[Rfam]
RNA sequence: GGGAGGUUGGCGGUGGACGUUCCACUCGCCAACCGGGUCAGGUCCGGAAGGAAGCAGCCCUAACGAGACCGGGCGGGUCUCUGUCCAACCUCCCACC
Numbered sequence: 001g002g003g004a005g006g007u008u009g010g011c012g013g014u015g016g017a018c019g020u021u022c023c024a025c026u027c028g029c030c031a032a033c034c035g036g037g038u039c040a041g042g043u044c045c046g047g048a049a050g051g052a053a054g055c056a057g058c059c060c061u062a063a064c065g066a067g068a069c070c071g072g073g074c075g076g077g078u079c080u081c082u083g084u085c086c087a088a089c090c091u092c093c094c095a096c097c
Stems, first nucleotide, its partner, number of pairs: 003092005009085005018075005025067004035060004043052003